[Rfam]
RNA: c-di-AMP riboswitch aptamer (ydaO/yuaA leader)
Organism: Nostocales cyanobacterium LEGE 11386
RNA sequence: CCUAAUUCAUUGCUUAUCCUACAAAAUUUGUUCAUCAGGGUAAGCCAGGAGCGGAGGAACCAAAUUUGGGGCUUAUCUCCAAGAAAAGUGAAGACUUUAAGCUCAAGACUUCACCCAAUUAGAGAAGGACAUCUCUCAGUCCUAGCCCGUCAGCUAACUUCGUAGGCAUUGAGAGGAGAUUGA
Numbered sequence: 001c002c003u004a005a006u007u008c009a010u011u012g013c014u015u016a017u018c019c020u021a022c023a024a025a026a027u028u029u030g031u032u033c034a035u036c037a038g039g040g041u042a043a044g045c046c047a048g049g050a051g052c053g054g055a056g057g058a059a060c061c062a063a064a065u066u067u068g069g070g071g072c073u074u075a076u077c078u079c080c081a082a083g084a085a086a087a088g089u090g091a092a093g094a095c096u097u098u099a100a101g102c103u104c105a106a107g108a109c110u111u112c113a114c115c116c117a118a119u120u121a122g123a124g125a126a127g128g129a130c131a132u133c134u135c136u137c138a139g140u141c142c143u144a145g146c147c148c149g150u151c152a153g154c155u156a157a158c159u160u161c162g163u164a165g166g167c168a169u170u171g172a173g174a175g176g177a178g179a180u181u182g183a
Stems, first nucleotide, its partner, number of pairs: 001166002006050003051163006061068002069148003077124003127142004